[Rfam]
RNA: MIR7486 microRNA precursor family
RNA sequence: CUCAAGGAAGCGCUUCAUCCACGUGGACAGAAAGCGCGCCCUCAAAGACACGUUUUUAGUCCACGUGGACAAAGCGCUUCCUUGAGG
Numbered sequence: 001c002u003c004a005a006g007g008a009a010g011c012g013c014u015u016c017a018u019c020c021a022c023g024u025g026g027a028c029a030g031a032a033a034g035c036g037c038g039c040c041c042u043c044a045a046a047g048a049c050a051c052g053u054u055u056u057u058a059g060u061c062c063a064c065g066u067g068g069a070c071a072a073a074g075c076g077c078u079u080c081c082u083u084g085a086g087g
Stems, first nucleotide, its partner, number of pairs: 001086015018069004023064006030057007038049001040047001